[Rfam]
This 588-nucleotide part of an RNA from Clostridium fungisolvens belongs to the Rfam family "Bacterial large subunit ribosomal RNA". It scores 2940 bits against the family's covariance model. Lineage of the source: Bacteria > Bacillota > Clostridia > Eubacteriales > Clostridium.
RNA sequence: CCCGCGAUUGGACGGAAAGACCCCGUAGAGCUUUACUGUAGCUUAGCAUUGAGUUUCGGUAUUGUCUGUACAGGAUAGGUGGGAGACUUGGAAGCAUCCUCGUUAGGGGAUGUGGAGUCGUCCUUGGGAUACCACCCUGACAGUACUGGGAUUCUAACCGGGCACCAUGAAGCUGGUGACGGGACAUUGUUAGGUGGGCAGUUUGACUGGGGCGGUCGCCUCCAAAAAAGUAACGGAGGCGCCCAAAGGUUCCCUCAGAACGGUCGGAAAUCGUUCGUAGAGUGCAAAGGCAGAAGGGAGCCUGACUGCGACACCCACAAGUGGAGCAGGGACGAAAGUCGGGCUUAGUGAUCCGGUGGUACCUCGUGGGAGGGCCAUCGCUCAACGGAUAAAAGCUACCUCGGGGAUAACAGGCUGAUCUCCCCCAAGAGUCCACAUCGACGGGGAGGUUUGGCACCUCGAUGUCGGCUCGUCGCAUCCUGGGGCUGAAGUAGGUCCCAAGGGUUGGGCUGUUCGCCCAUUAAAGCGGCACGCGAGCUGGGUUCAGAACGUCGUGAGACAGUUCGGUCCCUAUCCGUCGCGGGCGUA
Numbered sequence: 001c002c003c004g005c006g007a008u009u010g011g012a013c014g015g016a017a018a019g020a021c022c023c024c025g026u027a028g029a030g031c032u033u034u035a036c037u038g039u040a041g042c043u044u045a046g047c048a049u050u051g052a053g054u055u056u057c058g059g060u061a062u063u064g065u066c067u068g069u070a071c072a073g074g075a076u077a078g079g080u081g082g083g084a085g086a087c088u089u090g091g092a093a094g095c096a097u098c099c100u101c102g103u104u105a106g107g108g109g110a111u112g113u114g115g116a117g118u119c120g121u122c123c124u125u126g127g128g129a130u131a132c133c134a135c136c137c138u139g140a141c142a143g144u145a146c147u148g149g150g151a152u153u154c155u156a157a158c159c160g161g162g163c164a165c166c167a168u169g170a171a172g173c174u175g176g177u178g179a180c181g182g183g184a185c186a187u188u189g190u191u192a193g194g195u196g197g198g199c200a201g202u203u204u205g206a207c208u209g210g211g212g213c214g215g216u217c218g219c220c221u222c223c224a225a226a227a228a229a230g231u232a233a234c235g236g237a238g239g240c241g242c243c244c245a246a247a248g249g250u251u252c253c254c255u256c257a258g259a260a261c262g263g264u265c266g267g268a269a270a271u272c273g274u275u276c277g278u279a280g281a282g283u284g285c286a287a288a289g290g291c292a293g294a295a296g297g298g299a300g301c302c303u304g305a306c307u308g309c310g311a312c313a314c315c316c317a318c319a320a321g322u323g324g325a326g327c328a329g330g331g332a333c334g335a336a337a338g339u340c341g342g343g344c345u346u347a348g349u350g351a352u353c354c355g356g357u358g359g360u361a362c363c364u365c366g367u368g369g370g371a372g373g374g375c376c377a378u379c380g381c382u383c384a385a386c387g388g389a390u391a392a393a394a395g396c397u398a399c400c401u402c403g404g405g406g407a408u409a410a411c412a413g414g415c416u417g418a419u420c421u422c423c424c425c426c427a428a429g430a431g432u433c434c435a436c437a438u439c440g441a442c443g444g445g446g447a448g449g450u451u452u453g454g455c456a457c458c459u460c461g462a463u464g465u466c467g468g469c470u471c472g473u474c475g476c477a478u479c480c481u482g483g484g485g486c487u488g489a490a491g492u493a494g495g496u497c498c499c500a501a502g503g504g505u506u507g508g509g510c511u512g513u514u515c516g517c518c519c520a521u522u523a524a525a526g527c528g529g530c531a532c533g534c535g536a537g538c539u540g541g542g543u544u545c546a547g548a549a550c551g552u553c554g555u556g557a558g559a560c561a562g563u564u565c566g567g568u569c570c571c572u573a574u575c576c577g578u579c580g581c582g583g584g585c586g587u588a
Stems, first nucleotide, its partner, number of pairs: 001584008010576003014571002022405004027401002029397005035202004042194007051154016068137001078136005085119003094113008158182003163178005205217004218240006241386001243343002249301006255281002258276006282291002306329004312323003331340003354380007362373002414455003418452001419449007429439002466541001467539004471533001472530005479504002482499006506520005547565004551560003